[Rfam]
RNA sequence: UUGAAGCUCCAUCUACAAAUGGAUAAGACUUUCUUCUUAGUGUAUAUGAGUUUUUGAAAGUAAGGGAGCAAUAACCAAUUUCUUGUUCUAUCAAGAAAAGAGGGCGUUAUUGCUCCUUUA
Number, nucleotide and partner (000 for none) at each position: 001u000002u000003g000004a000005a000006g000007c000008u023009c022010c021011a020012u019013c000014u000015a000016c000017a000018a000019a012020u011021g010022g009023a008024u000025a000026a000027g000028a000029c000030u000031u000032u000033c000034u000035u000036c000037u000038u000039a000040g000041u000042g000043u000044a000045u000046a000047u000048g000049a000050g000051u000052u000053u000054u000055u000056g000057a000058a000059a000060g000061u000062a119063a118064g117065g116066g115067a114068g113069c112070a111071a110072u109073a108074a000075c000076c000077a000078a000079u000080u097081u096082c095083u094084u093085g000086u000087u000088c000089u000090a000091u000092c000093a084094a083095g082096a081097a080098a000099a000100g000101a000102g000103g000104g000105c000106g000107u000108u073109a072110u071111u070112g069113c068114u067115c066116c065117u064118u063119u062120a000
Plastid-psbA-1 3UTR RNA: a 120-nucleotide RNA from Styrax suberifolius. Plastid psbA-1 is a non-coding RNA (ncRNA) present in plastids. It was identified in inverted repeat sequences in the 3 prime untranslate region (3UTR) of photosystem II quinone-binding protein (psbA). The family's RNA type in Rfam is cis-regulatory element. The organism belongs to Styrax, within Eukaryota.